RNA: Glutamine riboswitch aptamer (glnA leader)
Organism: Leptolyngbyaceae cyanobacterium LF-bin-113
RNA sequence: AUCGUUCAUCUUCUUUAGAAAUCGAAUUUGUUCUGUUUUUGAAGAGACGGAAGUAGGGAAGUCCCGAAGGAACGCGCC
Numbered sequence: 001a002u003c004g005u006u007c008a009u010c011u012u013c014u015u016u017a018g019a020a021a022u023c024g025a026a027u028u029u030g031u032u033c034u035g036u037u038u039u040u041g042a043a044g045a046g047a048c049g050g051a052a053g054u055a056g057g058g059a060a061g062u063c064c065c066g067a068a069g070g071a072a073c074g075c076g077c078c
Stems, first nucleotide, its partner, number of pairs: 003074005009047004050075001056065003